[Rfam]
Rfam assigns this 170-nucleotide RNA sequence from Effusibacillus lacus to the family "M-box riboswitch aptamer (ykoK leader)". Rfam's curators write: M-box riboswitch, also know as ykoK leader is described as a metaloregulatory RNA that sense divalent metals and function as a genetic control element of genes related to divalent metal transport in bacteria. A reference for the family is Barrick et al. (2004), "New RNA motifs suggest an expanded scope for riboswitches in bacterial genetic control", Proc Natl Acad Sci U S A. The organism belongs to Effusibacillus, within Bacteria.
RNA sequence: ACGAUUCUUCGUUAGGUGAGGCUUCUGCAUAGAUCAUACGCCACUACCCGGAAACGUCGAGAGACGCCAAUGGGUCAACAGGUACUACCGGCUUAAGGUUUUACCUAAUGUGGCUGAACCGGUUGGUUCUAGCUAUGUAUGUGCUAAAGCUUGGACGAGUGGAGAAGGCG
Numbered sequence: 001a002c003g004a005u006u007c008u009u010c011g012u013u014a015g016g017u018g019a020g021g022c023u024u025c026u027g028c029a030u031a032g033a034u035c036a037u038a039c040g041c042c043a044c045u046a047c048c049c050g051g052a053a054a055c056g057u058c059g060a061g062a063g064a065c066g067c068c069a070a071u072g073g074g075u076c077a078a079c080a081g082g083u084a085c086u087a088c089c090g091g092c093u094u095a096a097g098g099u100u101u102u103a104c105c106u107a108a109u110g111u112g113g114c115u116g117a118a119c120c121g122g123u124u125g126g127u128u129c130u131a132g133c134u135a136u137g138u139a140u141g142u143g144c145u146a147a148a149g150c151u152u153g154g155a156c157g158a159g160u161g162g163a164g165a166a167g168g169c170g
Base pairs, nucleotide, nucleotide: 005166006165007164008163009162010161011156012155013096015151016150017149020145021144022143025141026139027138028137029136030135031134032133040114041113042112043111044110046075047074048073049072050071055066056065057064058063081105082104083103084102087099088098089097116129117128118127
Dot-bracket structure: ....(((((((([.(((..(((..((((((((.......(((((.(((((....((((....))))....))))).....((((..(((......])))..))))....))))).(((........)))...))))))).).)))...)))...))....))))))....